[Rfam]
RNA sequence: UCCCCGAUAGCUCAGUUGGUAGAGCGCCCGACUGUUAAUCGGAUGGUCACAGGUUCGAGUCCUGUUCGGGGAG
Numbered sequence: 001u002c003c004c005c006g007a008u009a010g011c012u013c014a015g016u017u018g019g020u021a022g023a024g025c026g027c028c029c030g031a032c033u034g035u036u037a038a039u040c041g042g043a044u045g046g047u048c049a050c051a052g053g054u055u056c057g058a059g060u061c062c063u064g065u066u067c068g069g070g071g072a073g
Base pairs, nucleotide, nucleotide: 001072002071003070004069005068006067007066010025011024012023013022028042029041030040031039049065050064051063052062053061
A member of the RNA family "tRNA" from Tumebacillus algifaecis, 73 nucleotides long. It is annotated as a transfer RNA. A search with the family's covariance model found it, with a score of 71 bits. Pairs were carried over by alignment from the consensus structure, which is taken from published work.